[Rfam]
RNA: ZMP/ZTP riboswitch aptamer (pfl RNA motif)
Organism: Paenibacillus lutrae
RNA sequence: CAAACGAUGUGCGACUGGCGUAGCAUGGAGAACCAUGAGGAAGCACACUCGGAUAACCGCCGUACGCCUGGGCAAAGUAC
Numbered sequence: 001c002a003a004a005c006g007a008u009g010u011g012c013g014a015c016u017g018g019c020g021u022a023g024c025a026u027g028g029a030g031a032a033c034c035a036u037g038a039g040g041a042a043g044c045a046c047a048c049u050c051g052g053a054u055a056a057c058c059g060c061c062g063u064a065c066g067c068c069u070g071g072g073c074a075a076a077g078u079a080c
Stems, first nucleotide, its partner, number of pairs: 006049001008047005015040002017068005025036004059073003